[Rfam]
RNA sequence: UUUCUAUACUAUCUAGUACUUCUAAUAG
Numbered sequence: 001u002u003u004c005u006a007u008a009c010u011a012u013c014u015a016g017u018a019c020u021u022c023u024a025a026u027a028g
Base pairs, nucleotide, nucleotide: 007018008017009016010015
RNA: CRISPR RNA direct repeat element